RNA: mir-1302 microRNA precursor family
Organism: Pan troglodytes
RNA sequence: UUUUUAGUAUAAGUAGAUUCCAUGCAAUGUUUGGAAUCUACUUAUACUAAAA
Dot-bracket structure: .....(((((((.(((.(((((........).)))).))).)))))))....